A member of the RNA family "serC leader" from Sandarakinorhabdus cyanobacteriorum, 53 nucleotides long. Taxonomically the source falls in Sandarakinorhabdus (Bacteria, Pseudomonadati, Pseudomonadota, Alphaproteobacteria). About the family: This family is a putative regulatory RNA structure that is found upstream of the serC-serA operon in some alpha-proteobacteria. The final stem of the structure overlaps the ribosome binding site of the serC reading frame. It is annotated as a cis-regulatory leader. For this family Rfam cites "Evidence for a second class of S-adenosylmethionine riboswitches and other regulatory RNA motifs in alpha-proteobacteria" (Corbino et al., Genome Biol, 2005). Gene Ontology term of the family: regulation of gene expression. It scores 48 bits against the family's covariance model.

RNA sequence: CGGCGGGCCACGCCGUCCCAACGCGGCGCGCGCUCUCUGAGAGGAGAGAACAU
Numbered sequence: 001c002g003g004c005g006g007g008c009c010a011c012g013c014c015g016u017c018c019c020a021a022c023g024c025g026g027c028g029c030g031c032g033c034u035c036u037c038u039g040a041g042a043g044g045a046g047a048g049a050a051c052a053u
Base pairs, nucleotide, nucleotide: 011028012027013026014025015024016023033048034047035046036045037044038043